This 46-nucleotide sequence from Neogobius melanostomus belongs to the Rfam family "Histone 3' UTR stem-loop". Rfam links the family to the GO term mRNA 3'-end processing by stem-loop binding and cleavage. A search with the family's covariance model found it, with a score of 34 bits. The family's RNA type in Rfam is cis-regulatory element. Taxonomically the source falls in Neogobius (Eukaryota, Eumetazoa, Bilateria, Actinopterygii). The family has 50 seed sequences and 44,596 matches in Rfam 15.1.
[Rfam]
RNA sequence: ACAACGGCCCUUUUAAGGGCCACCACUUCCUCCAAGAGGAGCUUCU
Numbered sequence: 001a002c003a004a005c006g007g008c009c010c011u012u013u014u015a016a017g018g019g020c021c022a023c024c025a026c027u028u029c030c031u032c033c034a035a036g037a038g039g040a041g042c043u044u045c046u
Stems, first nucleotide, its partner, number of pairs: 006021006
Dot-bracket structure: .....((((((....)))))).........................
The base pairs follow the family's consensus structure, which is taken from published work. The mRNAs of metazoan histone genes lack a poly-A tail. 3' end processing occurs at a site between a highly conserved stem-loop (modelled by this family) and a purine rich region around 20 nts downstream (the histone downstream element, or HDE). The stem-loop is bound by a 31 kDa stem-loop binding protein (SLBP - also termed the histone hairpin binding protein, or HBP).